RNA: Small nucleolar RNA SNORD82
Organism: Pogona vitticeps
RNA sequence: AGCACAGGUGAUGAGUUUUGGGACUUAAUACUGAUCUUGUGAUGUCACCAACGUGAACUGAUGUGU
Numbered sequence: 001a002g003c004a005c006a007g008g009u010g011a012u013g014a015g016u017u018u019u020g021g022g023a024c025u026u027a028a029u030a031c032u033g034a035u036c037u038u039g040u041g042a043u044g045u046c047a048c049c050a051a052c053g054u055g056a057a058c059u060g061a062u063g064u065g066u
Stems, first nucleotide, its partner, number of pairs: 002066005